The family of this 180-nucleotide RNA from Sporosarcina pasteurii is "Lysine riboswitch aptamer". The family's consensus secondary structure is taken from published work.
[Rfam]
RNA sequence: CGAUAGGGUAGAGGCUGCAUUACUUAUCAGUAGUACAUGGAAGUGUGACAACGAUGAUCAUGUGUGAAAGGGAGUUUUGCCGAAGCUUGAUGAAUUUGUCAAAGUCAUCAGGUUGGGGUUAUUCUAAAUAAGAAUAACACUGUCAUACAGCGUAUUUGCUGAUGAUGAGCUACAAAUCGG
Dot-bracket structure: .......((((.....(((..((((.......((((((((.................))))))))......))))..)))...((((((((((.(.......).))))))))))((.((((((((.....)))))))).)).((((.(((........)))))))....)))).......

Gene Ontology term of the family: lysine biosynthetic process.